The family of this 97-nucleotide sequence from Bailinhaonella thermotolerans is "Glycine riboswitch aptamer". Lineage of the source: Bacteria > Bacillati > Actinomycetes > Streptosporangiales > Bailinhaonella.
RNA sequence: CGAACCCGUGCGGGAGAGAGCCCUGUCAGCCGGUCAGGGCCACCGAAGGAGCAAGCCUUCCCGUCAACCUCUCAGGUAAAAGGACCGCACGAGCCAG
Numbered sequence: 001c002g003a004a005c006c007c008g009u010g011c012g013g014g015a016g017a018g019a020g021c022c023c024u025g026u027c028a029g030c031c032g033g034u035c036a037g038g039g040c041c042a043c044c045g046a047a048g049g050a051g052c053a054a055g056c057c058u059u060c061c062c063g064u065c066a067a068c069c070u071c072u073c074a075g076g077u078a079a080a081a082g083g084a085c086c087g088c089a090c091g092a093g094c095c096a097g
Base pairs, nucleotide, nucleotide: 007091008090009089010088011087012086013085020040021039022038023037024036025035042077043076044075045073046072049071050070051069055064056063